[Rfam]
RNA sequence: CCUUUCAUCUAGGAGUUCACAAUCUAGUGGGGGAACACACACACUAGAUUGUGAACUCCUAGAUGAAAGG
Numbered sequence: 001c002c003u004u005u006c007a008u009c010u011a012g013g014a015g016u017u018c019a020c021a022a023u024c025u026a027g028u029g030g031g032g033g034a035a036c037a038c039a040c041a042c043a044c045u046a047g048a049u050u051g052u053g054a055a056c057u058c059c060u061a062g063a064u065g066a067a068a069g070g
Base pairs, nucleotide, nucleotide: 001070002069003068004067005066006065007064008063009062010061011060012059013058014057015056016055017054018053019052020051021050022049023048024047025046026045027044028043029042
RNA: mir-28 microRNA precursor family